[Rfam]
RNA sequence: AAGAGGCACAGCUCUUUUAGUAUUUGUCUAGCAGGUUUUCCUGUCUUCACUGGCAGACACCACC
Numbered sequence: 001a002a003g004a005g006g007c008a009c010a011g012c013u014c015u016u017u018u019a020g021u022a023u024u025u026g027u028c029u030a031g032c033a034g035g036u037u038u039u040c041c042u043g044u045c046u047u048c049a050c051u052g053g054c055a056g057a058c059a060c061c062a063c064c
Base pairs, nucleotide, nucleotide: 034061035060036059037057038056039055040053041052043050044049
U7 small nuclear RNA: a 64-nucleotide RNA from Otolemur garnettii.
Rfam 15.1 lists 10,439 matches to the family in 569 species.
Animal histone pre-mRNAs are spliced by a different mechanism than nuclear pre-mRNAs and self-splicing introns. This processing involves the U7 snRNP, which contains only one RNA species: U7. The 5' end of U7 RNA is thought to base-pair to a conserved spacer element downstream of the cleavage site in histone pre-mRNA. This family contains a number of annotated U7 pseudogenes.
Lineage of the source: Eukaryota > Metazoa > Chordata > Craniata > Otolemur.
The match comes from Rfam's covariance-model search (45 bits).